[Rfam]
RNA: T-box leader
RNA sequence: UUUUGGACAUGGAAGAGGAUUAGUACAUACCGGGAAUGGCACAGAGAGAAGAUGAGUGGUGAGACAUCUUUCCAGGAAACGUAUGGAACCUGCCUUGGAGUCUCUGCAUGAAAAUGCAGCGUAGCGGCCGGCGAUAACGGUUGGAAAGAGAAUUGUCAGAUGAUUGGAAGAUAAAAGAUCAGAUGACAGUUAAUCAGGGUGGUACCGCCGAAGUUUUCGGUCCCUUUU
Numbered sequence: 001u002u003u004u005g006g007a008c009a010u011g012g013a014a015g016a017g018g019a020u021u022a023g024u025a026c027a028u029a030c031c032g033g034g035a036a037u038g039g040c041a042c043a044g045a046g047a048g049a050a051g052a053u054g055a056g057u058g059g060u061g062a063g064a065c066a067u068c069u070u071u072c073c074a075g076g077a078a079a080c081g082u083a084u085g086g087a088a089c090c091u092g093c094c095u096u097g098g099a100g101u102c103u104c105u106g107c108a109u110g111a112a113a114a115u116g117c118a119g120c121g122u123a124g125c126g127g128c129c130g131g132c133g134a135u136a137a138c139g140g141u142u143g144g145a146a147a148g149a150g151a152a153u154u155g156u157c158a159g160a161u162g163a164u165u166g167g168a169a170g171a172u173a174a175a176a177g178a179u180c181a182g183a184u185g186a187c188a189g190u191u192a193a194u195c196a197g198g199g200u201g202g203u204a205c206c207g208c209c210g211a212a213g214u215u216u217u218c219g220g221u222c223c224c225u226u227u228u
Base pairs, nucleotide, nucleotide: 007101008100015096016095017094018093026085027084028083029082030081037074038073039072048071049070050069051068052067053066104119105118106117107116108115109114120133121132122131151191152190153189154188155187156186157185196225197224198223199222207221208220209219210218211217